A member of the RNA family "IMES-1 RNA motif", 192 nucleotides long. The literature on the family includes a 2009 paper in Nature by Weinberg et al., "Exceptional structured noncoding RNAs revealed by bacterial metagenome analysis". Rfam's curators put it in the seed alignment. The family's RNA type in Rfam is non-coding RNA gene.
RNA sequence: UGGCAACCGACUAGUGACCACCUGCAGACGGGAAACCUAGGGAGAAGCCAGACGAAGAGACCGAAGGGUGAAAGCAUUUGCAAGAGUCGAUGAUAAAAAAUAGCUUGCAGAUCCACCAAGGAUUCAAGAGAAAGAAUCCAAGGAGCUAAAGAAAAUCUCACUUUAGACCCCUGAGGAACUCGGUUGAAGAAA
Numbered sequence: 001u002g003g004c005a006a007c008c009g010a011c012u013a014g015u016g017a018c019c020a021c022c023u024g025c026a027g028a029c030g031g032g033a034a035a036c037c038u039a040g041g042g043a044g045a046a047g048c049c050a051g052a053c054g055a056a057g058a059g060a061c062c063g064a065a066g067g068g069u070g071a072a073a074g075c076a077u078u079u080g081c082a083a084g085a086g087u088c089g090a091u092g093a094u095a096a097a098a099a100a101u102a103g104c105u106u107g108c109a110g111a112u113c114c115a116c117c118a119a120g121g122a123u124u125c126a127a128g129a130g131a132a133a134g135a136a137u138c139c140a141a142g143g144a145g146c147u148a149a150a151g152a153a154a155a156u157c158u159c160a161c162u163u164u165a166g167a168c169c170c171c172u173g174a175g176g177a178a179c180u181c182g183g184u185u186g187a188a189g190a191a192a
Base pairs, nucleotide, nucleotide: 001050002049003048004047011040012039013038014036015035062175065172066171067170076112077111078110079109080108081107082106083105084104120139121138122137123136124135128159129158130157131156146166147165148164149163150162151161